[Rfam]
Nucleotides: 133
Base pairs, nucleotide, nucleotide: 003059004058005057006056008054020045021044022043023042024041025040026039027038028037029036071126072125073124074123075122076121077120083111084110085109086108087107088106089105090104091103093101
Number, partner (000 for none) and nucleotide at each position: 001000a002000g003059a004058g005057u006056a007000g008054c009000u010000a011000a012000a013000c014000c015000g016000c017000a018000c019000a020045g021044g022043c023042c024041a025040c026039u027038a028037u029036u030000c031000a032000c033000u034000g035000u036029a037028a038027u039026a040025g041024u042023g043022g044021u045020u046000c047000a048000a049000a050000c051000a052000c053000c054008g055000g056006u057005g058004c059003u060000g061000a062000c063000a064000g065000c066000a067000g068000a069000g070000g071126g072125g073124a074123c075122c076121u077120u078000g079000u080000c081000g082000c083111c084110u085109u086108u087107g088106g089105a090104g091103g092000a093101u094000u095000g096000u097000c098000u099000g100000u101093g102000c103091c104090c105089u106088u107087c108086a109085a110084a111083g112000a113000g114000a115000a116000u117000u118000u119000a120077g121076a122075g123074g124073u125072c126071c127000c128000a129000c130000c131000c132000a133000c
A member of the RNA family "Small nucleolar RNA SNORA68" from Erinaceus europaeus, 133 nucleotides long. By type it is an H/ACA-box small nucleolar RNA. Rfam links the family to the GO terms nucleolus and RNA processing. The literature on the family includes a 1997 paper in Genes Dev by Ganot et al., "The family of box ACA small nucleolar RNAs is defined by an evolutionarily conserved secondary structure and ubiquitous sequence elements essential for RNA accumulation". Lineage of the source: Eukaryota > Opisthokonta > Laurasiatheria > Eulipotyphla > Erinaceus. The family has 26 seed sequences and 1,079 matches in Rfam 15.1.